Annotation: This 83-nucleotide RNA sequence from Denticeps clupeoides belongs to the Rfam family "mir-221 microRNA precursor family". Taxonomically the source falls in Denticeps (Eukaryota, Gnathostomata, Neopterygii, Clupeiformes). Rfam 15.1 lists 1,797 matches to the family in 643 species. Its family is annotated with miRNA-mediated post-transcriptional gene silencing and RISC complex in the Gene Ontology. The match comes from Rfam's covariance-model search (56 bits). The literature on the family includes a 2009 paper in BMC Genomics by Soares et al., "Parallel DNA pyrosequencing unveils new zebrafish microRNAs".
RNA sequence: UGCGGUGCUGACCCAGUAUUCAGGGUAGGGUCUGUGUGAAACCAUUACAGCUACAUCUGAUUACUGGGUCAGUAAUGGCAUCA
Numbered sequence: 001u002g003c004g005g006u007g008c009u010g011a012c013c014c015a016g017u018a019u020u021c022a023g024g025g026u027a028g029g030g031u032c033u034g035u036g037u038g039a040a041a042c043c044a045u046u047a048c049a050g051c052u053a054c055a056u057c058u059g060a061u062u063a064c065u066g067g068g069u070c071a072g073u074a075a076u077g078g079c080a081u082c083a
Stems, first nucleotide, its partner, number of pairs: 013067006020060003023056001025054004032050004